[Rfam]
RNA sequence: GUGGGCUACGGGGACAUGUAUCCCGUAACUAUCGGGGGCAAGAUUGUGGGGUCCCUGUGUGCCAUUGCUGGCGUGUUGACGAUUGCGCUGCCAGUGCCUGUGAUUGUCUCCAAC
Numbered sequence: 001g002u003g004g005g006c007u008a009c010g011g012g013g014a015c016a017u018g019u020a021u022c023c024c025g026u027a028a029c030u031a032u033c034g035g036g037g038g039c040a041a042g043a044u045u046g047u048g049g050g051g052u053c054c055c056u057g058u059g060u061g062c063c064a065u066u067g068c069u070g071g072c073g074u075g076u077u078g079a080c081g082a083u084u085g086c087g088c089u090g091c092c093a094g095u096g097c098c099u100g101u102g103a104u105u106g107u108c109u110c111c112a113a114c
Stems, first nucleotide, its partner, number of pairs: 001114002004111002008107004014101003018097004037077004049063002
RNA: Potassium channel RNA editing signal